[Rfam]
Rfam assigns this 99-nucleotide RNA to the family "dinG RNA".
Rfam classes the family as a small RNA.
The base pairs follow the family's consensus structure, which is taken from published work.
It is one of the family's seed sequences.

RNA sequence: UAUGAUACUUCCCUGAACCUGACUGAAAAAGGGCCCGCGCAGUAGGAUAAGCCGCGGGGGAAUGCUCGCCGUGUUUGAAAAAGAAUACGGCCGGAUUUC
Numbered sequence: 001u002a003u004g005a006u007a008c009u010u011c012c013c014u015g016a017a018c019c020u021g022a023c024u025g026a027a028a029a030a031g032g033g034c035c036c037g038c039g040c041a042g043u044a045g046g047a048u049a050a051g052c053c054g055c056g057g058g059g060g061a062a063u064g065c066u067c068g069c070c071g072u073g074u075u076u077g078a079a080a081a082a083g084a085a086u087a088c089g090g091c092c093g094g095a096u097u098u099c
Stems, first nucleotide, its partner, number of pairs: 011033004034058006059099004065094001068091001071088005